RNA: mir-1285 microRNA precursor family
RNA sequence: AUUGGGUCUCACUAUGUUGCCCAGGCUGGUCUUGAACUUCUGGCAGAGUUGAAGCCAGAAGUUCGAGACCAGCCUGGGCAACAUAGUGAGAAGCCUGCC
Numbered sequence: 001a002u003u004g005g006g007u008c009u010c011a012c013u014a015u016g017u018u019g020c021c022c023a024g025g026c027u028g029g030u031c032u033u034g035a036a037c038u039u040c041u042g043g044c045a046g047a048g049u050u051g052a053a054g055c056c057a058g059a060a061g062u063u064c065g066a067g068a069c070c071a072g073c074c075u076g077g078g079c080a081a082c083a084u085a086g087u088g089a090g091a092a093g094c095c096u097g098c099c
Stems, first nucleotide, its partner, number of pairs: 007091008019079007032072003